Actinobacteria sRNA Ms_IGR-5: a 227-nucleotide RNA sequence from Kineosphaera limosa. The organism belongs to Kineosphaera limosa, within Bacteria. The pairing is the family consensus, mapped onto this sequence.
[Rfam]
RNA sequence: ACACCGAAAGGAGGUGAUCCGAGUAGUGAAGACUUUUCGGACGCGUGAGGUGACUGCGCGCUAGCGCAGCCGUCCCGACUUUCCACCCGUCACCUAUCCGGUGCGGACAGGUCGGUCAACGGACGGGUGAGCUGCGAAAUCCAACGCAGUCACCGGGGCCCGCGGGUAUACCCGGCAUCGUCCAACCGGGUAGUCGAUCUCGAUCGGCAGCCCGCGGGCUUCACUGC
Numbered sequence: 001a002c003a004c005c006g007a008a009a010g011g012a013g014g015u016g017a018u019c020c021g022a023g024u025a026g027u028g029a030a031g032a033c034u035u036u037u038c039g040g041a042c043g044c045g046u047g048a049g050g051u052g053a054c055u056g057c058g059c060g061c062u063a064g065c066g067c068a069g070c071c072g073u074c075c076c077g078a079c080u081u082u083c084c085a086c087c088c089g090u091c092a093c094c095u096a097u098c099c100g101g102u103g104c105g106g107a108c109a110g111g112u113c114g115g116u117c118a119a120c121g122g123a124c125g126g127g128u129g130a131g132c133u134g135c136g137a138a139a140u141c142c143a144a145c146g147c148a149g150u151c152a153c154c155g156g157g158g159c160c161c162g163c164g165g166g167u168a169u170a171c172c173c174g175g176c177a178u179c180g181u182c183c184a185a186c187c188g189g190g191u192a193g194u195c196g197a198u199c200u201c202g203a204u205c206g207g208c209a210g211c212c213c214g215c216g217g218g219c220u221u222c223a224c225u226g227c
Base pairs, nucleotide, nucleotide: 014057015056016055018053059136060135061134063133064132065131067129068128070126072124073123074122156221157220158219159218160217161216162215163214164213165212166211167210171190172189173188174187175186